[Rfam]
RNA: mir-26 microRNA precursor family
Organism: Austrofundulus limnaeus
RNA sequence: CUGUAGCCUGGUUCAAGUAAUCCAGGAUAGGCUUUCUGCACCUGCUUUGGCCUGUCCUUGAUUACUUGCGCUUGGAGACAG
Numbered sequence: 001c002u003g004u005a006g007c008c009u010g011g012u013u014c015a016a017g018u019a020a021u022c023c024a025g026g027a028u029a030g031g032c033u034u035u036c037u038g039c040a041c042c043u044g045c046u047u048u049g050g051c052c053u054g055u056c057c058u059u060g061a062u063u064a065c066u067u068g069c070g071c072u073u074g075g076a077g078a079c080a081g
Stems, first nucleotide, its partner, number of pairs: 002080003007075002010072003014068009024058010